[Rfam]
RNA sequence: ACUCAACACCGCGGGAGCUCGCACCUGAAGCGGGCUGAGAGGGCGGCUGGAGCGAUCCGGCGCCGCCGACCGCCUGAACCUGACCGGGUAAUGCCGGCGUAGGGAGGAAUGUCGUGACGGCA
Numbered sequence: 001a002c003u004c005a006a007c008a009c010c011g012c013g014g015g016a017g018c019u020c021g022c023a024c025c026u027g028a029a030g031c032g033g034g035c036u037g038a039g040a041g042g043g044c045g046g047c048u049g050g051a052g053c054g055a056u057c058c059g060g061c062g063c064c065g066c067c068g069a070c071c072g073c074c075u076g077a078a079c080c081u082g083a084c085c086g087g088g089u090a091a092u093g094c095c096g097g098c099g100u101a102g103g104g105a106g107g108a109a110u111g112u113c114g115u116g117a118c119g120g121c122a
Base pairs, nucleotide, nucleotide: 006110009107010106011073012072013071014070017035018034019033020032021031042067043066044065045064046063079103080102081101082100084097085096086095087094

Shown here is a 122-nucleotide RNA from Saccharothrix algeriensis, a member of the family "TPP riboswitch aptamer (THI element)". The family's consensus secondary structure is taken from published work.